A member of the RNA family "THF (Tetrahydrofolate) riboswitch aptamer" from Clostridium manihotivorum, 102 nucleotides long. Lineage of the source: Bacteria > Bacillati > Clostridia > Clostridiaceae > Clostridium. The match comes from Rfam's covariance-model search (80 bits). Tetrahydrofolate (THF) riboswitch was first reported for Ames et al. as an RNA motif in 5' untranslated (5'-UTR)regions of folate transport and biosynthesis genes in Firmicutes genomes.

RNA sequence: GGCAGAGUAGGUUAUAGUGCGUUAAGUGCCAGUUGGACGGGAAGUUUGCCUCUGGACGAAAAGUUAAGUUAACUUGCGGUACUAUGAUUGCAUUCCGCUGCC
Numbered sequence: 001g002g003c004a005g006a007g008u009a010g011g012u013u014a015u016a017g018u019g020c021g022u023u024a025a026g027u028g029c030c031a032g033u034u035g036g037a038c039g040g041g042a043a044g045u046u047u048g049c050c051u052c053u054g055g056a057c058g059a060a061a062a063g064u065u066a067a068g069u070u071a072a073c074u075u076g077c078g079g080u081a082c083u084a085u086g087a088u089u090g091c092a093u094u095c096c097g098c099u100g101c102c
Stems, first nucleotide, its partner, number of pairs: 001102005010089010020078003026057002029055004035049001040095003044091001061075004